[Rfam]
This 74-nucleotide sequence from Tequatrovirus T4 belongs to the Rfam family "tRNA". The base pairs follow the family's consensus structure, which is taken from published work. It is one of the family's seed sequences.
Nucleotides: 074
Stems, first nucleotide, its partner, number of pairs: 001073005007067001010026003029043004050066005
Number, partner (000 for none) and nucleotide at each position: 001073g002072g003071c004070c005069c006000u007067g008000u009000a010026g011025c012024u013000c014000a015000a016000u017000g018000g019000u020000u021000a022000g023000c024012a025011g026010c027000a028000g029043u030042c031041c032040c033000c034000u035000c036000a037000u038000a039000a040032g041031g042030g043029a044000a045000a046000g047000g048000u049000u050066a051065c052064c053063a054062g055000u056000u057000c058000a059000a060000a061000u062054c063053u064052g065051g066050u067007c068000u069005g070004g071003g072002u073001c074000a